Annotation:
The record is a 57-nucleotide RNA sequence, which matches "Plastid-ndhJ 3UTR RNA" in Rfam. For this family Rfam cites "Retrograde signaling in plants: A critical review focusing on the GUN pathway and beyond" (Richter et al., Plant Commun, 2023). Plastid ndhJ is a non-coding RNA (ncRNA) present in plastids. It was identified as a short stem-loop motif in the 3 prime untranslate region (3UTR) of ndhJ gene. By type it is a cis-regulatory element.
RNA sequence: CCAUGAACUUUGUACCGCGCCCAUCACUUAGAUGGGCACCGGAAAGUCGUGCAGGAG
Numbered sequence: 001c002c003a004u005g006a007a008c009u010u011u012g013u014a015c016c017g018c019g020c021c022c023a024u025c026a027c028u029u030a031g032a033u034g035g036g037c038a039c040c041g042g043a044a045a046g047u048c049g050u051g052c053a054g055g056a057g
Stems, first nucleotide, its partner, number of pairs: 019037002022034004